[Rfam]
RNA: L31-Corynebacteriaceae ribosomal protein leader
RNA sequence: ACUCGGGCACGAUCCGCAGGUUCGCCGCGGAACCGACCCGUAGUUCAAUCCUGAGGGA
Numbered sequence: 001a002c003u004c005g006g007g008c009a010c011g012a013u014c015c016g017c018a019g020g021u022u023c024g025c026c027g028c029g030g031a032a033c034c035g036a037c038c039c040g041u042a043g044u045u046c047a048a049u050c051c052u053g054a055g056g057g058a
Base pairs, nucleotide, nucleotide: 001044002043003042004040005039006038007037013031014030015029016028017027019026